[Rfam]
RNA sequence: GUUGCUUCACGACUGGAAGGAUGGCCUGAUUUUCUAUUGUCUGGUCAUUCUGUAGAGGGAAGCAUAGAUUGAACAAGCCAGAAUUAAACAGCAUGAUGCUUAUUUCUCUGCAUCCGUGUUACCUGUCUCCUGGCACAACC
Numbered sequence: 001g002u003u004g005c006u007u008c009a010c011g012a013c014u015g016g017a018a019g020g021a022u023g024g025c026c027u028g029a030u031u032u033u034c035u036a037u038u039g040u041c042u043g044g045u046c047a048u049u050c051u052g053u054a055g056a057g058g059g060a061a062g063c064a065u066a067g068a069u070u071g072a073a074c075a076a077g078c079c080a081g082a083a084u085u086a087a088a089c090a091g092c093a094u095g096a097u098g099c100u101u102a103u104u105u106c107u108c109u110g111c112a113u114c115c116g117u118g119u120u121a122c123c124u125g126u127c128u129c130c131u132g133g134c135a136c137a138a139c140c
Base pairs, nucleotide, nucleotide: 003064004063005062006061007060008059017053019051020050021049022047023046024045025044026043077134078133079132080131081130083128090120091119092118094116095114096113097112098111